[Rfam]
Shown here is a 139-nucleotide RNA sequence from Stylophora pistillata, a member of the family "U4 spliceosomal RNA".
U4 small nuclear RNA (U4 snRNA) is a component of the major U2-dependent spliceosome.
Taxonomically the source falls in Stylophora (Eukaryota, Metazoa, Cnidaria, Pocilloporidae).
Nucleotides: 139
Base pairs, nucleotide, nucleotide: 020052021051022050023049024048026047027046028045034042035041085115086114087113088111089110091108092107093106094105095104128139129138130137131136
Number, partner (000 for none) and nucleotide at each position: 001000a002000g003000c004000u005000u006000u007000g008000c009000g010000c011000a012000g013000u014000g015000g016000c017000a018000u019000u020052a021051c022050c023049g024048u025000a026047g027046c028045c029000a030000g031000u032000g033000a034042g035041g036000u037000u038000c039000a040000u041035c042034c043000g044000a045028g046027g047026c048024g049023c050022g051021g052020u053000u054000a055000u056000u057000g058000c059000u060000g061000a062000u063000u064000g065000a066000a067000a068000a069000c070000u071000u072000u073000u074000c075000c076000c077000a078000a079000u080000a081000c082000c083000c084000c085115g086114c087113a088111a089110g090000a091108c092107g093106g094105c095104u096000u097000g098000a099000a100000a101000u102000a103000c104095a105094g106093c107092c108091g109000g110089c111088u112000u113087u114086g115085c116000a117000a118000u119000u120000u121000u122000u123000g124000a125000c126000g127000g128139u129138c130137c131136a132000u133000a134000c135000g136131u137130g138129g139128a
Pairs were carried over by alignment from the consensus structure, which is taken from published work. A search with the family's covariance model found it, with a score of 126 bits.